[Rfam]
RNA sequence: UAUUAGGUUGGUGCAGAUGUGAUUGCGGUUUUUGCCAUUGAAAGUAAUGACAAAAACCACAAUCAUAUCUGCACCAACCUAAUA
Numbered sequence: 001u002a003u004u005a006g007g008u009u010g011g012u013g014c015a016g017a018u019g020u021g022a023u024u025g026c027g028g029u030u031u032u033u034g035c036c037a038u039u040g041a042a043a044g045u046a047a048u049g050a051c052a053a054a055a056a057c058c059a060c061a062a063u064c065a066u067a068u069c070u071g072c073a074c075c076a077a078c079c080u081a082a083u084a
Base pairs, nucleotide, nucleotide: 001084002083003082004081005080006079007078008077009076010075011074012073013072014071015070016069017068018067019066020065021064022063023062024061025060027058028057029056030055031054032053033052034051036049037048038047039046040045

Background:
The record is an 84-nucleotide sequence from Pan troglodytes, which matches "mir-548 microRNA precursor family" in Rfam. It scores 94 bits against the family's covariance model. Rfam 15.1 lists 3,009 matches to the family in 27 species. Lineage of the source: Eukaryota > Mammalia > Hominoidea > Hominidae > Pan.